[Rfam]
RNA sequence: CGGCUGUAGCUAUAUCAAGGUGGAAGGAAACUGGUCGGUUGUUGCCUCUACUGUUCUGUUGACAAACCGCUUACCAAACUUUCGACAUUU
Numbered sequence: 001c002g003g004c005u006g007u008a009g010c011u012a013u014a015u016c017a018a019g020g021u022g023g024a025a026g027g028a029a030a031c032u033g034g035u036c037g038g039u040u041g042u043u044g045c046c047u048c049u050a051c052u053g054u055u056c057u058g059u060u061g062a063c064a065a066a067c068c069g070c071u072u073a074c075c076a077a078a079c080u081u082u083c084g085a086c087a088u089u090u
Base pairs, nucleotide, nucleotide: 021084022083023082024081025080026079033071034070035069037068038067039066040065041063042062043061044060
Source information:
The record is a 90-nucleotide sequence from Camphora micrantha, which matches "Small nucleolar RNA snoR109" in Rfam. The family's consensus secondary structure was predicted with WAR. Rfam links the family to the GO terms RNA processing and nucleolus. Rfam classes the family as an H/ACA-box small nucleolar RNA. The organism belongs to Camphora, within Eukaryota. Rfam 15.1 lists 680 matches to the family in 220 species. The match comes from Rfam's covariance-model search (57 bits). For this family Rfam cites "Experimental RNomics: identification of 140 candidates for small non-messenger RNAs in the plant Arabidopsis thaliana" (Marker et al., Curr Biol, 2002).